Rfam assigns this 95-nucleotide sequence from Oceanicola granulosus to the family "Glycine riboswitch aptamer". A search with the family's covariance model found it, with a score of 56 bits.
RNA sequence: CCGCAACACUCCGAAGAGUGGGUCUCUGACCCCGCCGAAGGAGCAAGCCGCAGCACGCGCGGCGAAUCUCUCAGGCCCACGACGGAGGGGGCAUC
Numbered sequence: 001c002c003g004c005a006a007c008a009c010u011c012c013g014a015a016g017a018g019u020g021g022g023u024c025u026c027u028g029a030c031c032c033c034g035c036c037g038a039a040g041g042a043g044c045a046a047g048c049c050g051c052a053g054c055a056c057g058c059g060c061g062g063c064g065a066a067u068c069u070c071u072c073a074g075g076c077c078c079a080c081g082a083c084g085g086a087g088g089g090g091g092c093a094u095c
Stems, first nucleotide, its partner, number of pairs: 007089001009087005020032004034076003037072002041070003047063005